[Rfam]
RNA sequence: GGGCUGUGAUGACCGAUAAAAUUUCUCGAUUCUGACAAUGACCAAAGCAAGUUGUUUGCUCUGUGACUGAUGACAGUGUUUGUGCGUGUCUGAGCCUA
Numbered sequence: 001g002g003g004c005u006g007u008g009a010u011g012a013c014c015g016a017u018a019a020a021a022u023u024u025c026u027c028g029a030u031u032c033u034g035a036c037a038a039u040g041a042c043c044a045a046a047g048c049a050a051g052u053u054g055u056u057u058g059c060u061c062u063g064u065g066a067c068u069g070a071u072g073a074c075a076g077u078g079u080u081u082g083u084g085c086g087u088g089u090c091u092g093a094g095c096c097u098a
Base pairs, nucleotide, nucleotide: 001097002096003095004094
small nucleolar RNA snoR126: a 98-nucleotide RNA sequence from Cajanus cajan. Rfam classes the family as a C/D-box small nucleolar RNA. Pairs were carried over by alignment from the consensus structure, which was predicted with RNAalifold. A search with the family's covariance model found it, with a score of 74 bits. The organism belongs to Cajanus, within Eukaryota. The literature on the family includes a 2009 paper in Nucleic Acids Res by Chen and Wu, "Mining small RNA sequencing data: a new approach to identify small nucleolar RNAs in Arabidopsis".